[Rfam]
RNA sequence: AAUUGUUGCUAGGGGUGCCAAAUAAUUGGCUGAGAGGAAAAUCCAACCCUAUGAACCUGAUAUGGUUAAUACCAGCGUAGGAAAGCAAGUAAAUUUAGCG
Numbered sequence: 001a002a003u004u005g006u007u008g009c010u011a012g013g014g015g016u017g018c019c020a021a022a023u024a025a026u027u028g029g030c031u032g033a034g035a036g037g038a039a040a041a042u043c044c045a046a047c048c049c050u051a052u053g054a055a056c057c058u059g060a061u062a063u064g065g066u067u068a069a070u071a072c073c074a075g076c077g078u079a080g081g082a083a084a085g086c087a088a089g090u091a092a093a094u095u096u097a098g099c100g
Base pairs, nucleotide, nucleotide: 006088007087008086009085010084011050012049013048014047017030018029019028020027021026037043038042056081057080058079059078063074064073065072